[Rfam]
RNA: U7 small nuclear RNA
RNA sequence: GAAACUUUGCUCUGAAGAUAUUUGUCCAGAAGGUUUCUCAUAAAGAGAAGCCCGC
Numbered sequence: 001g002a003a004a005c006u007u008u009g010c011u012c013u014g015a016a017g018a019u020a021u022u023u024g025u026c027c028a029g030a031a032g033g034u035u036u037c038u039c040a041u042a043a044a045g046a047g048a049a050g051c052c053c054g055c
Base pairs, nucleotide, nucleotide: 032052033051034050035049036048037047038046039045